[Rfam]
RNA sequence: UGGUAAUGGAUUUAUGGUGGGUCCUUCUCUGUGGGCCUCUCAUAGUGUACCCAUGCCAUAGCAAAUGGCAGCCUCGAACCAUUGCCCAGUCCCCUUACCUGUGGGCUGUGAGCACUGAAGGGGGUUGCACAGUG
Numbered sequence: 001u002g003g004u005a006a007u008g009g010a011u012u013u014a015u016g017g018u019g020g021g022u023c024c025u026u027c028u029c030u031g032u033g034g035g036c037c038u039c040u041c042a043u044a045g046u047g048u049a050c051c052c053a054u055g056c057c058a059u060a061g062c063a064a065a066u067g068g069c070a071g072c073c074u075c076g077a078a079c080c081a082u083u084g085c086c087c088a089g090u091c092c093c094c095u096u097a098c099c100u101g102u103g104g105g106c107u108g109u110g111a112g113c114a115c116u117g118a119a120g121g122g123g124g125u126u127g128c129a130c131a132g133u134g
Base pairs, nucleotide, nucleotide: 001053002051003050004049005048012045013044014043015042016041017040019038020037021036022034023033069127070126071125072124073123074122080117081116085112087108088107089106090105091104092103
RNA: Small nucleolar RNA SNORA42/SNORA80 family